Notes: ALIL pseudoknot: a 117-nucleotide RNA from Sphaerotilus mobilis. The match comes from Rfam's covariance-model search (73 bits). Taxonomically the source falls in Sphaerotilus (Bacteria, Pseudomonadota, Betaproteobacteria, Burkholderiales). Rfam classes the family as a cis-regulatory element. Its family is annotated with positive regulation of translational frameshifting in the Gene Ontology.

RNA sequence: CGCGUUUUUCGCCCGGGCGGAGCCCCACCGCCGGUGGAACUGAUCUACGCGCUGGUGGACCAGCGACGCGCUGCCCACGGGGUCGAACCGAUCUGCCCGGUGCCUCAGAUCGCUCCG
Numbered sequence: 001c002g003c004g005u006u007u008u009u010c011g012c013c014c015g016g017g018c019g020g021a022g023c024c025c026c027a028c029c030g031c032c033g034g035u036g037g038a039a040c041u042g043a044u045c046u047a048c049g050c051g052c053u054g055g056u057g058g059a060c061c062a063g064c065g066a067c068g069c070g071c072u073g074c075c076c077a078c079g080g081g082g083u084c085g086a087a088c089c090g091a092u093c094u095g096c097c098c099g100g101u102g103c104c105u106c107a108g109a110u111c112g113c114u115c116c117g
Stems, first nucleotide, its partner, number of pairs: 016032005078117005089112002092109004